[Rfam]
The record is a 96-nucleotide RNA from Dyadobacter jejuensis, which matches "TPP riboswitch aptamer (THI element)" in Rfam. Its family is annotated with thiamine pyrophosphate binding in the Gene Ontology. The match comes from Rfam's covariance-model search (67 bits). Rfam 15.1 lists 16,130 matches to the family in 8,693 species.

RNA sequence: CUGCAACUUUGGGGGUGUCCACUAUGGUGGUCUGAGAUUAUACCCUUUGAACCUGAUACAGCUCAUACUGUCGAAGGGAAAAGCAAGGAACCCCUG
Number, nucleotide and partner (000 for none) at each position: 001c000002u000003g000004c000005a000006a000007c083008u082009u081010u080011g046012g045013g044014g043015g000016u040017g032018u000019c030020c029021a028022c000023u000024a000025u000026g000027g000028u021029g020030g019031u000032c017033u000034g000035a000036g000037a000038u000039u000040a016041u000042a000043c014044c013045c012046u011047u000048u000049g000050a000051a000052c077053c076054u075055g000056a000057u000058a071059c070060a069061g068062c000063u000064c000065a000066u000067a000068c061069u060070g059071u058072c000073g000074a000075a054076g053077g052078g000079a000080a010081a009082a008083g007084c000085a000086a000087g000088g000089a000090a000091c000092c000093c000094c000095u000096g000